[Rfam]
RNA sequence: AAUACUAUUAAACUCCGAGCUUCUGGACCUACAAUAAUUCUUUAUCAUGGUCCUUAAGCCGAUAGGGUUUGUUUGGAAACGGACAAGCCUCCCGGUGCGGAAAGGAGGGAAUCGACAGCGGUU
Numbered sequence: 001a002a003u004a005c006u007a008u009u010a011a012a013c014u015c016c017g018a019g020c021u022u023c024u025g026g027a028c029c030u031a032c033a034a035u036a037a038u039u040c041u042u043u044a045u046c047a048u049g050g051u052c053c054u055u056a057a058g059c060c061g062a063u064a065g066g067g068u069u070u071g072u073u074u075g076g077a078a079a080c081g082g083a084c085a086a087g088c089c090u091c092c093c094g095g096u097g098c099g100g101a102a103a104g105g106a107g108g109g110a111a112u113c114g115a116c117a118g119c120g121g122u123u
Base pairs, nucleotide, nucleotide: 003117006114013107014106015105016104019059020058021057022056025053026052027051028050029049034045035044036043065090066089067088068087069086070085071084072083073082074081075080091100092099
Molybdenum/Tungsten riboswitch aptamer (Moco RNA motif): a 123-nucleotide RNA from Desulforamulus profundi. The match comes from Rfam's covariance-model search (72 bits). The family has 160 seed sequences and 1,248 matches in Rfam 15.1. The source organism's lineage runs through Bacteria, Bacillati, Bacillota, Clostridia and Desulforamulus.